RNA sequence: CUGGCGGGACGACCCGUCAGCAUUUCUUCAUCCGGGGACGGCCCC
Numbered sequence: 001c002u003g004g005c006g007g008g009a010c011g012a013c014c015c016g017u018c019a020g021c022a023u024u025u026c027u028u029c030a031u032c033c034g035g036g037g038a039c040g041g042c043c044c045c
Base pairs, nucleotide, nucleotide: 001020002019003018004017005016006015007014008013034045035044036043037042